[Rfam]
RNA sequence: CUGGCAUAAUGAGGAAAAACUAGAUAUGUCUGAUCUAAUUGAUGAGAAAUACCUCCUACUCAUUCUGA
Numbered sequence: 001c002u003g004g005c006a007u008a009a010u011g012a013g014g015a016a017a018a019a020c021u022a023g024a025u026a027u028g029u030c031u032g033a034u035c036u037a038a039u040u041g042a043u044g045a046g047a048a049a050u051a052c053c054u055c056c057u058a059c060u061c062a063u064u065c066u067g068a
Stems, first nucleotide, its partner, number of pairs: 006063002009060001027046001030041001